Shown here is a 105-nucleotide RNA from Sanguibacter antarcticus, a member of the family "TPP riboswitch aptamer (THI element)". Vitamin B(1) in its active form thiamin pyrophosphate (TPP) is an essential coenzyme that is synthesised by coupling of pyrimidine and thiazole moieties in bacteria. The family's consensus secondary structure is taken from published work.
RNA sequence: CACGAACGACAGGGGAGCGCGAAAGAGCGCUGAGAGUGCGGUAUUCCGCAGACCCUCGAACCUGAUCCGGUUAGCACCGGUGUAGGGAGUCGGGAUUCUCGCCAC
Number, nucleotide and partner (000 for none) at each position: 001c000002a000003c000004g000005a000006a000007c092008g091009a090010c089011a056012g055013g054014g053015g000016a000017g030018c029019g028020c027021g000022a000023a000024a000025g000026a000027g020028c019029g018030c017031u000032g000033a000034g000035a000036g000037u050038g049039c048040g047041g046042u000043a000044u000045u000046c041047c040048g039049c038050a037051g000052a000053c014054c013055c012056u011057c000058g000059a000060a000061c086062c085063u084064g083065a000066u000067c080068c079069g078070g077071u000072u000073a000074g000075c000076a000077c070078c069079g068080g067081u000082g000083u064084a063085g062086g061087g000088a000089g010090u009091c008092g007093g000094g000095a000096u000097u000098c000099u000100c000101g000102c000103c000104a000105c000